Shown here is a 116-nucleotide sequence from Sanguibacter gelidistatuariae, a member of the family "ZMP/ZTP riboswitch aptamer (pfl RNA motif)". It scores 44 bits against the family's covariance model. Lineage of the source: Bacteria > Bacillati > Actinomycetota > Actinomycetes > Sanguibacter.
RNA sequence: GUCAACGGUCGCGACUGGCGAGGGUGGGGUUCACCACCGGGGAGCGGCCGGGAAGUCCCUGUGCAGGUUCUGGUUCAGCCGGAGGCUGCGUGGCGCCGUCCGCCUGGGCGCCUGGG
Numbered sequence: 001g002u003c004a005a006c007g008g009u010c011g012c013g014a015c016u017g018g019c020g021a022g023g024g025u026g027g028g029g030u031u032c033a034c035c036a037c038c039g040g041g042g043a044g045c046g047g048c049c050g051g052g053a054a055g056u057c058c059c060u061g062u063g064c065a066g067g068u069u070c071u072g073g074u075u076c077a078g079c080c081g082g083a084g085g086c087u088g089c090g091u092g093g094c095g096c097c098g099u100c101c102g103c104c105u106g107g108g109c110g111c112c113u114g115g116g
Stems, first nucleotide, its partner, number of pairs: 006050007015041002017104004024037004093111005
Pairs were carried over by alignment from the consensus structure, which is taken from published work.